[Rfam]
RNA: L31-Actinobacteria ribosomal protein leader
Organism: Kitasatospora sp. Root187
RNA sequence: UCGGUCCCGGUUCACGUGCGGCUGUCAGCUGCCGACCCGGUGCC
Numbered sequence: 001u002c003g004g005u006c007c008c009g010g011u012u013c014a015c016g017u018g019c020g021g022c023u024g025u026c027a028g029c030u031g032c033c034g035a036c037c038c039g040g041u042g043c044c
Stems, first nucleotide, its partner, number of pairs: 003044003007040004015034002018032006